Overview: The family of this 223-nucleotide sequence from Pseudaminobacter soli is "Group II catalytic intron D1-D4-6". Lineage of the source: Bacteria > Pseudomonadati > Pseudomonadota > Hyphomicrobiales > Pseudaminobacter.
RNA sequence: CAAGUUCUGCACUUCGAAGACCAAGCCAGUCACGAUGGCCCCGAGUCAUGCGUCGGCAUCCGCAAGGGUGUCGGCGAAGCGUUGACAGGGGAAAGGGCGGGCAGAGCAUUGAGCCGCGUAAAGUUGAACAUCCGGGGUGCCGACGCCGUGGAGAAAGGCGGAAGGCAACACAGCAUGGCGCGUCAUGGCGAGCACCAUGUUGGCCCCGCGCGGUCUGAGACCU
Numbered sequence: 001c002a003a004g005u006u007c008u009g010c011a012c013u014u015c016g017a018a019g020a021c022c023a024a025g026c027c028a029g030u031c032a033c034g035a036u037g038g039c040c041c042c043g044a045g046u047c048a049u050g051c052g053u054c055g056g057c058a059u060c061c062g063c064a065a066g067g068g069u070g071u072c073g074g075c076g077a078a079g080c081g082u083u084g085a086c087a088g089g090g091g092a093a094a095g096g097g098c099g100g101g102c103a104g105a106g107c108a109u110u111g112a113g114c115c116g117c118g119u120a121a122a123g124u125u126g127a128a129c130a131u132c133c134g135g136g137g138u139g140c141c142g143a144c145g146c147c148g149u150g151g152a153g154a155a156a157g158g159c160g161g162a163a164g165g166c167a168a169c170a171c172a173g174c175a176u177g178g179c180g181c182g183u184c185a186u187g188g189c190g191a192g193c194a195c196c197a198u199g200u201u202g203g204c205c206c207c208g209c210g211c212g213g214u215c216u217g218a219g220a221c222c223u
Base pairs, nucleotide, nucleotide: 012037014035015034016033019031020030021029025189026188039091040090041089042088045086046085047084048083049081050080051076052075053074054073055072056071057070058069059068060067061066110217111215113214114213115212116211117210118209133208134207135206136205137204138203139166140165141164144160145159146158147157171202172201173200174199175198176197177196178195180193181192